The record is a 45-nucleotide RNA sequence from Erinaceus europaeus, which matches "Histone 3' UTR stem-loop" in Rfam.
NCBI's taxonomy places the organism under Eukaryota, Eumetazoa, Bilateria, Sarcopterygii, Erinaceus.
A search with the family's covariance model found it, with a score of 40 bits.
RNA sequence: CCAAAGGCUCUUUUCAGAGCCACCCACGGCUUCAAAAAGAAAGAG
Number, nucleotide and partner (000 for none) at each position: 001c000002c000003a000004a000005a000006g021007g020008c019009u018010c017011u016012u000013u000014u000015c000016a011017g010018a009019g008020c007021c006022a000023c000024c000025c000026a000027c000028g000029g000030c000031u000032u000033c000034a000035a000036a000037a000038a000039g000040a000041a000042a000043g000044a000045g000
The family's RNA type in Rfam is cis-regulatory element. On this family, see Williams and Marzluff, Nucleic Acids Res 1995: "The sequence of the stem and flanking sequences at the 3' end of histone mRNA are critical determinants for the binding of the stem-loop binding protein".